Shown here is a 119-nucleotide RNA from Amphibalanus amphitrite, a member of the family "U4atac minor spliceosomal RNA". The literature on the family includes a 2008 paper in Nucleic Acids Res by Davila Lopez et al., "Computational screen for spliceosomal RNA genes aids in defining the phylogenetic distribution of major and minor spliceosomal components". Rfam describes the family as follows. U4atac is an essential component of the minor U12-type spliceosome complex which is required for removal of the rarer class of eukaryotic introns (AT-AC, U12-type). Taxonomically the source falls in Amphibalanus (Eukaryota, Eumetazoa, Pancrustacea, Altocrustacea). The base pairs follow the family's consensus structure, which is taken from published work. Gene Ontology terms of the family: U4atac snRNP, spliceosomal tri-snRNP complex assembly and mRNA 5'-splice site recognition. A search with the family's covariance model found it, with a score of 65 bits.

RNA sequence: UCCGUCCUUGAUCUAGGGGAAGCUGAAGUCAAAGGAUCGUCUAGUGAUGACUUCCGUGCUUACACCCAUAACUUAACACGCCUCAGGCACCUCGGUGUCUAGUGGCAAUUUCUGGAGCC
Dot-bracket structure: ....(((((......))))).((.(((((((......(.....)...)))))))...))....................(((.(((((((....)))))).).))).............